[Rfam]
RNA sequence: AACCGCAUAGGCGAUGGAGUUCGCCUUUAAACGCCCAAGGGCUGAUGACUCCUACCAGCGC
Numbered sequence: 001a002a003c004c005g006c007a008u009a010g011g012c013g014a015u016g017g018a019g020u021u022c023g024c025c026u027u028u029a030a031a032c033g034c035c036c037a038a039g040g041g042c043u044g045a046u047g048a049c050u051c052c053u054a055c056c057a058g059c060g061c
Stems, first nucleotide, its partner, number of pairs: 010025004016052006033042003
A member of the RNA family "Fluoride riboswitch aptamer (crcB RNA motif)" from Paenibacillus sp. D9, 61 nucleotides long. It scores 60 bits against the family's covariance model.